[Rfam]
A member of the RNA family "ffh sRNA" from Amaricoccus solimangrovi, 52 nucleotides long. The base pairs follow the family's consensus structure, which is taken from published work. Rfam classes the family as a small RNA.

RNA sequence: UCGUCCCAGGAUCGCCGUCGGUCAGCGCGUCGCGCCCACCGGCGCGAUCAGC
Numbered sequence: 001u002c003g004u005c006c007c008a009g010g011a012u013c014g015c016c017g018u019c020g021g022u023c024a025g026c027g028c029g030u031c032g033c034g035c036c037c038a039c040c041g042g043c044g045c046g047a048u049c050a051g052c
Stems, first nucleotide, its partner, number of pairs: 016044007025035004